[Rfam]
RNA sequence: UGGCGCUUGCGUGACUGGCGCCGCGAGGUGGGUUACCACCGGGGAGCGCAGGCCGCGCCCGCAACGCGGGUGCGAGACGCCGCGCGCCUGGGCAUGACCU
Numbered sequence: 001u002g003g004c005g006c007u008u009g010c011g012u013g014a015c016u017g018g019c020g021c022c023g024c025g026a027g028g029u030g031g032g033u034u035a036c037c038a039c040c041g042g043g044g045a046g047c048g049c050a051g052g053c054c055g056c057g058c059c060c061g062c063a064a065c066g067c068g069g070g071u072g073c074g075a076g077a078c079g080c081c082g083c084g085c086g087c088c089u090g091g092g093c094a095u096g097a098c099c100u
Stems, first nucleotide, its partner, number of pairs: 005053008015043002017088005028039004077095001079093003
About this RNA:
Rfam assigns this 100-nucleotide RNA sequence from Trinickia caryophylli to the family "ZMP/ZTP riboswitch aptamer (pfl RNA motif)". Taxonomically the source falls in Trinickia (Bacteria, Betaproteobacteria, Burkholderiales, Burkholderiaceae). Pairs were carried over by alignment from the consensus structure, which is taken from published work.